[Rfam]
The family of this 126-nucleotide RNA from Artemisia annua is "MIR168 microRNA precursor family". Pairs were carried over by alignment from the consensus structure, which was predicted with WAR. The source organism's lineage runs through Eukaryota, Streptophyta, Tracheophyta, eudicotyledons and Artemisia.

RNA sequence: AUUGGUGGUUUUUCUGAUUCGCUUGGUACAGGUCGGGAACUGCUUCGCCGAAAAAAAAAAAAAAAAAAAAAGUCGGUGAAUAUUAAGUCCCGCCUUGUAUCAACUGAAUUAGAAACCACUAUGAAA
Numbered sequence: 001a002u003u004g005g006u007g008g009u010u011u012u013u014c015u016g017a018u019u020c021g022c023u024u025g026g027u028a029c030a031g032g033u034c035g036g037g038a039a040c041u042g043c044u045u046c047g048c049c050g051a052a053a054a055a056a057a058a059a060a061a062a063a064a065a066a067a068a069a070a071a072g073u074c075g076g077u078g079a080a081u082a083u084u085a086a087g088u089c090c091c092g093c094c095u096u097g098u099a100u101c102a103a104c105u106g107a108a109u110u111a112g113a114a115a116c117c118a119c120u121a122u123g124a125a126a
Stems, first nucleotide, its partner, number of pairs: 013113002017109004023103010034092005041085001
The literature on the family includes a 2002 paper in Genes Dev by Reinhart et al., "MicroRNAs in plants". The match comes from Rfam's covariance-model search (73 bits).